This 132-nucleotide RNA sequence from Volvox carteri belongs to the Rfam family "U4 spliceosomal RNA". Taxonomically the source falls in Volvox carteri (Eukaryota, Chlorophyta, Chlorophyceae, Chlamydomonadales). Rfam classes the family as a spliceosomal small nuclear RNA. Rfam 15.1 lists 32,178 matches to the family in 2,547 species. The match comes from Rfam's covariance-model search (86 bits). Its Rfam clan is "U4 clan". From the family's description: U4 small nuclear RNA (U4 snRNA) is a component of the major U2-dependent spliceosome.
RNA sequence: UUCUUUGCUCUUGGGGCAAUGUCGCAGCCUAUGAGAUCUAAUCGAGGCGCGACUAUUGCUGGUUGAAAACUUAUUCCUUCCCCGUCGGUUGUGUUCUCUGGAACUUCCGCAAUAUUUGGCGGUCUUCGGACC
Numbered sequence: 001u002u003c004u005u006u007g008c009u010c011u012u013g014g015g016g017c018a019a020u021g022u023c024g025c026a027g028c029c030u031a032u033g034a035g036a037u038c039u040a041a042u043c044g045a046g047g048c049g050c051g052a053c054u055a056u057u058g059c060u061g062g063u064u065g066a067a068a069a070c071u072u073a074u075u076c077c078u079u080c081c082c083c084g085u086c087g088g089u090u091g092u093g094u095u096c097u098c099u100g101g102a103a104c105u106u107c108c109g110c111a112a113u114a115u116u117u118g119g120c121g122g123u124c125u126u127c128g129g130a131c132c
Stems, first nucleotide, its partner, number of pairs: 021053005027048003035043003084110001086109003091104002094101002121132004